[Rfam]
RNA sequence: UGGGCUGGUUGAAAGACCCGGGUCCACCUGUCGGCGGGGAAGUGCCCC
Dot-bracket structure: ((((((((((....))))..))))))......................
RNA: DUF3800-XI RNA